RNA sequence: AUAGAAACAGGUGAUGGAGUUCACCUUCAACCGCUUGAUAGCUGAUAACUCCUACCGAUCA
Numbered sequence: 001a002u003a004g005a006a007a008c009a010g011g012u013g014a015u016g017g018a019g020u021u022c023a024c025c026u027u028c029a030a031c032c033g034c035u036u037g038a039u040a041g042c043u044g045a046u047a048a049c050u051c052c053u054a055c056c057g058a059u060c061a
Stems, first nucleotide, its partner, number of pairs: 010025004016052006033042003

The record is a 61-nucleotide sequence, which matches "Fluoride riboswitch aptamer (crcB RNA motif)" in Rfam. It scores 60 bits against the family's covariance model. Pairs were carried over by alignment from the consensus structure, which is taken from published work.